[Rfam]
RNA sequence: UUCUUACUUCAGCAGCAUGAGGAUACUGGAGGCAUCUGUUAUGGUGUAACUCCAAUAUUUACAUGCUGCUAAAGUAAGAC
Numbered sequence: 001u002u003c004u005u006a007c008u009u010c011a012g013c014a015g016c017a018u019g020a021g022g023a024u025a026c027u028g029g030a031g032g033c034a035u036c037u038g039u040u041a042u043g044g045u046g047u048a049a050c051u052c053c054a055a056u057a058u059u060u061a062c063a064u065g066c067u068g069c070u071a072a073a074g075u076a077a078g079a080c
Base pairs, nucleotide, nucleotide: 002079003078005076006075007074011070012069013068014067015066016065017064018063020060022059023058024057025056027054028053029052
mir-16 microRNA precursor family: an 80-nucleotide sequence from Electrophorus electricus. The family's consensus secondary structure was predicted with PFOLD. Its family is annotated with miRNA-mediated post-transcriptional gene silencing and RISC complex in the Gene Ontology.